[Rfam]
Nucleotides: 217
Base pairs, nucleotide, nucleotide: 012035013034014033015032019030020029021028023186025184026183037089039087040086043084044083045082046081047079048078049074050073052071053070054069055068056067057066058065059064109209111208112207113206115204116203130202131201132200133199134198135197136162137161138160141156142155143154144153167196168195171193172192173191174190175189176188177187
Number, partner (000 for none) and nucleotide at each position: 001000g002000a003000a004000g005000u006000c007000c008000g009000g010000c011000c012035c013034a014033g015032g016000u017000a018000a019030g020029g021028g022000g023186u024000a025184g026183c027000g028021c029020c030019c031000g032015c033014c034013u035012g036000g037089u038000a039087a040086c041000g042000a043084g044083u045082g046081u047079u048078g049074c050073g051000g052071g053070g054069u055068c056067g057066u058065c059064g060000g061000u062000g063000a064059c065058g066057g067056c068055g069054g070053c071052c072000g073050c074049g075000a076000a077000g078048c079047g080000u081046a082045c083044a084043c085000a086040g087039u088000g089037a090000u091000u092000g093000u094000g095000c096000g097000g098000g099000g100000u101000g102000u103000g104000g105000g106000a107000u108000u109209g110000a111208g112207c113206c114000a115204c116203g117000a118000a119000a120000u121000g122000c123000g124000u125000a126000c127000a128000u129000u130202g131201c132200g133199g134198a135197g136162g137161c138160c139000g140000a141156g142155c143154c144153g145000g146000u147000c148000g149000c150000u151000c152000a153144u154143g155142g156141c157000g158000a159000a160138g161137g162136c163000a164000a165000u166000a167196u168195g169000u170000g171193c172192g173191a174190u175189g176188c177187c178000g179000u180000c181000a182000g183026g184025c185000g186023a187177g188176g189175c190174a191173u192172c193171g194000a195168c196167g197135c198134u199133c200132c201131g202130u203116c204115g205000g206113g207112g208111u209109c210000g211000u212000a213000g214000g215000c216000c217000a
This 217-nucleotide RNA sequence from Telmatospirillum siberiense belongs to the Rfam family "Group II catalytic intron D1-D4-6".
For this family Rfam cites "The ins and outs of group II introns" (Bonen and Vogel, Trends Genet, 2001).
Group II introns are found in rRNA, tRNA and mRNA of organelles in fungi, plants and protists, and also in mRNA in bacteria.
Pairs were carried over by alignment from the consensus structure.